Coronavirus frameshifting stimulation element: a 78-nucleotide RNA sequence from Houbara coronavirus UAE-HKU28. Its family is annotated with viral translational frameshifting in the Gene Ontology. NCBI's taxonomy places the organism under Viruses, Orthornavirae, Pisuviricota, Coronaviridae, Buldecovirus. It scores 65 bits against the family's covariance model. Rfam classes the family as a frameshift element. Rfam's curators write: This family represents a conserved stem-loop found in Coronaviruses which can promote ribosomal frameshifting. This family interacts with a downstream region to form a pseudoknot structure, the region varies according to the virus but pseudoknot formation is known to stimulate frameshifting.
RNA sequence: GAGUAAUGGGUUCUAGUGGUGCCCAGCUAGAACCCCAACAGCCUGGUAUGCAACCAGAUGCUGUAAAACGGGCAUUUC
Dot-bracket structure: .......(((((((((...[[[[[..))))))))).(.....((.(........)))......).....]]]]]....